[Rfam]
RNA sequence: AGGUGAGGUAGAGGUCGCGGAUAUGAAGAGUACCUAAGGGGAGACGCUAAAGAGCCGUCUGUGAUCCUUAUGGAAAGGCAUACCCGCCGAAGCCCGUGCAGCUGCUCUUUGUUAGCCGCGCGGACUGGGGCCGUUUCCGAAAGGGACGGAACUGUCACGGUGCAAGGUUUGUCGCCGCAAGGCUUCAGACCUCCGCCCGUGUUGCGCUAUCUUGACA
Numbered sequence: 001a002g003g004u005g006a007g008g009u010a011g012a013g014g015u016c017g018c019g020g021a022u023a024u025g026a027a028g029a030g031u032a033c034c035u036a037a038g039g040g041g042a043g044a045c046g047c048u049a050a051a052g053a054g055c056c057g058u059c060u061g062u063g064a065u066c067c068u069u070a071u072g073g074a075a076a077g078g079c080a081u082a083c084c085c086g087c088c089g090a091a092g093c094c095c096g097u098g099c100a101g102c103u104g105c106u107c108u109u110u111g112u113u114a115g116c117c118g119c120g121c122g123g124a125c126u127g128g129g130g131c132c133g134u135u136u137c138c139g140a141a142a143g144g145g146a147c148g149g150a151a152c153u154g155u156c157a158c159g160g161u162g163c164a165a166g167g168u169u170u171g172u173c174g175c176c177g178c179a180a181g182g183c184u185u186c187a188g189a190c191c192u193c194c195g196c197c198c199g200u201g202u203u204g205c206g207c208u209a210u211c212u213u214g215a216c217a
Base pairs, nucleotide, nucleotide: 006212007211008210009209010208011207017087018086019085020084022082023081024080025079033072035070036069037068038067039066040065091126092125094123095122096121097120098119099118101116102115103114104113127153128152131149132148133147134146135145136144137143156201157200158199159198160197
Notes
A member of the RNA family "Lysine riboswitch aptamer" from Paenibacillus sp. YN15, 217 nucleotides long. It scores 96 bits against the family's covariance model. Taxonomically the source falls in Paenibacillus (Bacteria, Bacillota, Bacilli, Caryophanales).